[Rfam]
RNA: mir-210 microRNA precursor family
RNA sequence: CAGAAUCUCACUGCAGCUGCUGGACGCUGCACAAGAUUAGAUAUUUUAGAACUCUUGUGCGUGUGACAGCGGCUAUUGUGGGAAUUCCCUUACAACAU
Numbered sequence: 001c002a003g004a005a006u007c008u009c010a011c012u013g014c015a016g017c018u019g020c021u022g023g024a025c026g027c028u029g030c031a032c033a034a035g036a037u038u039a040g041a042u043a044u045u046u047u048a049g050a051a052c053u054c055u056u057g058u059g060c061g062u063g064u065g066a067c068a069g070c071g072g073c074u075a076u077u078g079u080g081g082g083a084a085u086u087c088c089c090u091u092a093c094a095a096c097a098u
Stems, first nucleotide, its partner, number of pairs: 006083006015074008025063002028061006035054002